The family of this 54-nucleotide sequence from Hucho hucho is "UnaL2 LINE 3' element". Pairs were carried over by alignment from the consensus structure, which is taken from published work. Rfam classes the family as a cis-regulatory element. NCBI's taxonomy places the organism under Eukaryota, Bilateria, Vertebrata, Salmonidae, Hucho. The eel long interspersed element (LINE) UnaL2 and its partner short interspersed element (SINE) share a conserved 3' tail containing a stem-loop that is critical for their retrotransposition.

[Rfam]
RNA sequence: UUCACUCACUGCUGUAAGGCACUCUGGAUAAGAGUGUCUGCUAAAUGACUAUGU
Numbered sequence: 001u002u003c004a005c006u007c008a009c010u011g012c013u014g015u016a017a018g019g020c021a022c023u024c025u026g027g028a029u030a031a032g033a034g035u036g037u038c039u040g041c042u043a044a045a046u047g048a049c050u051a052u053g054u
Stems, first nucleotide, its partner, number of pairs: 013043001014041003020036006
A search with the family's covariance model found it, with a score of 60 bits.